ZMP/ZTP riboswitch aptamer (pfl RNA motif): a 100-nucleotide sequence from Lachnospiraceae bacterium XPB1003. Lineage of the source: Bacteria > Bacillati > Bacillota > Lachnospirales > Lachnospiraceae.
RNA sequence: GGGCGGGUGAGCGACUGACGGAUAUGGCAGAGAUGCCUGUGGAAUUAACCACAUGAAGCUCAUCCUUUCAAAAAAGAAACCGACCGUCUGGGAAAGAACC
Numbered sequence: 001g002g003g004c005g006g007g008u009g010a011g012c013g014a015c016u017g018a019c020g021g022a023u024a025u026g027g028c029a030g031a032g033a034u035g036c037c038u039g040u041g042g043a044a045u046u047a048a049c050c051a052c053a054u055g056a057a058g059c060u061c062a063u064c065c066u067u068u069c070a071a072a073a074a075a076g077a078a079a080c081c082g083a084c085c086g087u088c089u090g091g092g093a094a095a096g097a098a099c100c
Base pairs, nucleotide, nucleotide: 003067005065006064007063008062009061010060011059012058015055017088018087019086020085021084039052040051041050042049080092081091